This 179-nucleotide sequence from Sphingomonas sp. SRS2 belongs to the Rfam family "Manganese Mn2+ riboswitch aptamer (yybP-ykoY)". The base pairs follow the family's consensus structure. It scores 68 bits against the family's covariance model. The source organism's lineage runs through Bacteria, Pseudomonadati, Alphaproteobacteria, Sphingomonadaceae and Sphingomonas. Gene Ontology term of the family: manganese ion binding. Rfam's curators write: This RNA was originally discovered in E. coli during a large scale screen and was named SraF. The family was later found to exist upstream of related families of protein genes in many bacteria, including the the yybP and ykoK genes in B. subtilis. The specific functions of these proteins are unknown, but this structured RNA element may be involved in their genetic regulation as a riboswitch.

Nucleotides: 179
Stems, first nucleotide, its partner, number of pairs: 027043003046084009062075005087179005093173001
Number, partner (000 for none) and nucleotide at each position: 001000c002000c003000a004000c005000c006000c007000g008000u009000c010000a011000u012000c013000c014000g015000g016000g017000g018000a019000g020000u021000a022000g023000c024000c025000g026000g027043c028042c029041g030000u031000c032000c033000c034000c035000a036000c037000g038000g039000g040000a041029c042028g043027g044000g045000a046084a047083u048082c049081g050080c051079g052078u053077c054076a055000a056000c057000a058000u059000a060000c061000u062075u063074g064073g065072g066071g067000g068000a069000g070000a071066c072065c073064c074063c075062a076054u077053g078052g079051c080050g081049c082048g083047a084046u085000c086000a087179g088178g089177g090176c091175c092000c093173g094000u095000g096000c097000g098000g099000c100000c101000u102000u103000g104000g105000c106000g107000a108000g109000a110000c111000c112000g113000a114000u115000g116000a117000c118000a119000c120000c121000g122000c123000a124000c125000c126000c127000c128000u129000g130000c131000c132000u133000g134000c135000c136000g137000g138000g139000c140000g141000g142000g143000g144000g145000g146000u147000c148000g149000u150000g151000g152000u153000g154000u155000c156000g157000u158000c159000c160000g161000u162000c163000a164000a165000c166000u167000g168000c169000c170000a171000g172000c173093c174000c175091g176090g177089c178088c179087c